Rfam assigns this 61-nucleotide sequence to the family "RAGATH-18 RNA".
Rfam's curators put it in the seed alignment.
From the family's description: Actinobacteria, Firmicutes, Fusobacteria, Thermotogae (1 example).
[Rfam]
RNA sequence: GCUGUGGAGCGUUUAAUAAUCUGGAGUAGCUGCGGCAAAACAGGACGCGAGGAAGCAGCGA
Numbered sequence: 001g002c003u004g005u006g007g008a009g010c011g012u013u014u015a016a017u018a019a020u021c022u023g024g025a026g027u028a029g030c031u032g033c034g035g036c037a038a039a040a041c042a043g044g045a046c047g048c049g050a051g052g053a054a055g056c057a058g059c060g061a
Base pairs, nucleotide, nucleotide: 001059002058003057004056005055009048010047011046012045013044021043022042023041029036030035

The base pairs follow the family's consensus structure, which is taken from published work.